RNA sequence: GGCCGGGCCCUGUGCGGCAUAUGCUUGCCAACUCCGCCAGGAUUGAAAGAUAGCAACGGUACGCUUGCCUCUAUGGGUGUCACAGGCAGCCUGGCCCAC
Numbered sequence: 001g002g003c004c005g006g007g008c009c010c011u012g013u014g015c016g017g018c019a020u021a022u023g024c025u026u027g028c029c030a031a032c033u034c035c036g037c038c039a040g041g042a043u044u045g046a047a048a049g050a051u052a053g054c055a056a057c058g059g060u061a062c063g064c065u066u067g068c069c070u071c072u073a074u075g076g077g078u079g080u081c082a083c084a085g086g087c088a089g090c091c092u093g094g095c096c097c098a099c
Stems, first nucleotide, its partner, number of pairs: 004093005009086006015077001018075004023068002027064002034059003042051003